About this RNA:
The record is a 63-nucleotide RNA from Monodelphis domestica, which matches "Selenocysteine insertion sequence 1" in Rfam. Lineage of the source: Eukaryota > Eumetazoa > Teleostomi > Mammalia > Monodelphis. The family's RNA type in Rfam is cis-regulatory element.
[Rfam]
RNA sequence: UUCACAGGAUGAUAGCAUCUUCUUAAACCCUUGAGGGGGAAUGAGAUGCUUGAGAGUCGUGAA
Number, nucleotide and partner (000 for none) at each position: 001u063002u062003c061004a060005c059006a000007g000008g000009a000010u000011g000012a000013u000014a050015g049016c048017a047018u046019c045020u044021u043022c000023u041024u000025a000026a000027a000028c000029c039030c038031u037032u000033g000034a000035g000036g000037g031038g030039g029040a000041a023042u000043g021044a020045g019046a018047u017048g016049c015050u014051u000052g000053a000054g000055a000056g000057u000058c000059g005060u004061g003062a002063a001